[Rfam]
Overview
Rfam assigns this 93-nucleotide sequence from Spirodela intermedia to the family "Small nucleolar RNA R64/Z200 family". The organism belongs to Spirodela, within Eukaryota. Its family is annotated with nucleolus and RNA processing in the Gene Ontology. Rfam classes the family as a C/D-box small nucleolar RNA. On this family, see Galardi et al., Mol Cell Biol 2002: "Purified box C/D snoRNPs are able to reproduce site-specific 2'-O-methylation of target RNA in vitro".
RNA sequence: UGUCUGCUGCGAGGAACAAUCGACUUUUCCACGCACGUCGGACUUUGGAGAUUUCCACAUCAAUGAGAAGAAAAGUCUUCUUCUGAGCAGAUA
Numbered sequence: 001u002g003u004c005u006g007c008u009g010c011g012a013g014g015a016a017c018a019a020u021c022g023a024c025u026u027u028u029c030c031a032c033g034c035a036c037g038u039c040g041g042a043c044u045u046u047g048g049a050g051a052u053u054u055c056c057a058c059a060u061c062a063a064u065g066a067g068a069a070g071a072a073a074a075g076u077c078u079u080c081u082u083c084u085g086a087g088c089a090g091a092u093a
Base pairs, nucleotide, nucleotide: 001093002092003091004090005089006088007087050061051060052059